[Rfam]
Nucleotides: 073
Base pairs, nucleotide, nucleotide: 011031012030013029014028015027016026051071052070053069054068055067056066057065058064
Number, partner (000 for none) and nucleotide at each position: 001000a002000u003000g004000a005000u006000u007000a008000u009000u010000a011031c012030c013029g014028c015027c016026a017000u018000u019000c020000c021000g022000a023000u024000a025000u026016u027015g028014g029013c030012g031011g032000g033000c034000u035000g036000a037000c038000a039000c040000g041000c042000g043000u044000c045000c046000a047000u048000c049000c050000c051071a052070a053069c054068c055067c056066g057065c058064c059000c060000u061000u062000g063000a064058g065057g066056c067055g068054g069053g070052u071051u072000u073000u